[Rfam]
RNA sequence: CACCACCCAUCGACGAACUCAUUCGUACGGCAGGAGCGGGGGACCCAGGUAAGUUCGCCGGACCGGACGACGCGUGUCGUCACCGGAACGGCAAGGGGUGAAGCCGUGCCGCCCAGAGCGGCACGGCCGGGCACCUCCCCGCCCGAACCCGACAGCUCACCUCGCAGGCGACGGAGAGGAACUUC
Dot-bracket structure: (...............................)..((((((....(................................................)(((.....(((((((((.....)))))))))..((((........))))...))).........))))))....................

About this RNA:
The family of this 185-nucleotide sequence from Streptomyces sp. 1-11 is "c-di-AMP riboswitch aptamer (ydaO/yuaA leader)". The organism belongs to Streptomyces, within Bacteria.